RNA sequence: CUAUGGUAGACUACAACCAUGGCGGAAGGAG
Numbered sequence: 001c002u003a004u005g006g007u008a009g010a011c012u013a014c015a016a017c018c019a020u021g022g023c024g025g026a027a028g029g030a031g
Base pairs, nucleotide, nucleotide: 001022002021003020004019005018006017007016
Dot-bracket structure: (((((((........))))))).........